[Rfam]
RNA sequence: AACCUUUUGAAUCAGUGUAGAGAUUUCGUUAGACACCAACCCAUUAGGGCUGAUCAGACUUACAAGAUGAGCGAAGUU
Numbered sequence: 001a002a003c004c005u006u007u008u009g010a011a012u013c014a015g016u017g018u019a020g021a022g023a024u025u026u027c028g029u030u031a032g033a034c035a036c037c038a039a040c041c042c043a044u045u046a047g048g049g050c051u052g053a054u055c056a057g058a059c060u061u062a063c064a065a066g067a068u069g070a071g072c073g074a075a076g077u078u
Stems, first nucleotide, its partner, number of pairs: 002077002005074002008071001011068003016064002020061003024058003028054003
Rfam assigns this 78-nucleotide sequence from Schistosoma mattheei to the family "mir-3492 microRNA precursor family". Rfam 15.1 lists 21,496 matches to the family in 13 species. Pairs were carried over by alignment from the consensus structure, which was predicted with RNAalifold.